[Rfam]
RNA sequence: GGUUGGUCUGAGUACAAUGGUGUUUACAAGUAAUUGAUCACUACCAGUUAUAGAUUUCUUUGUUCCUUUUCCACUCCCACAAUUUCACUUCACUAGCCUAAA
Numbered sequence: 001g002g003u004u005g006g007u008c009u010g011a012g013u014a015c016a017a018u019g020g021u022g023u024u025u026a027c028a029a030g031u032a033a034u035u036g037a038u039c040a041c042u043a044c045c046a047g048u049u050a051u052a053g054a055u056u057u058c059u060u061u062g063u064u065c066c067u068u069u070u071c072c073a074c075u076c077c078c079a080c081a082a083u084u085u086c087a088c089u090u091c092a093c094u095a096g097c098c099u100a101a102a
Stems, first nucleotide, its partner, number of pairs: 001098007010090002018079003022076001028064002032060002
RNA: Y RNA
Organism: Mandrillus leucophaeus